[Rfam]
RNA sequence: AGAGGUCACGAGUUUGAGGCCAUAACAGAAGUGUUCCUGGUGCAGCCCUGUCAGAUUCCAACAAAUCUGUGAAUUCUGCU
Numbered sequence: 001a002g003a004g005g006u007c008a009c010g011a012g013u014u015u016g017a018g019g020c021c022a023u024a025a026c027a028g029a030a031g032u033g034u035u036c037c038u039g040g041u042g043c044a045g046c047c048c049u050g051u052c053a054g055a056u057u058c059c060a061a062c063a064a065a066u067c068u069g070u071g072a073a074u075u076c077u078g079c080u
Stems, first nucleotide, its partner, number of pairs: 016048001018047003024080001026078005031043003052069006
Dot-bracket structure: ...............[.[[[...(.((((((((.......))).]]]]...((((((......))))))....))))).)
RNA: Mammalian CPEB3 ribozyme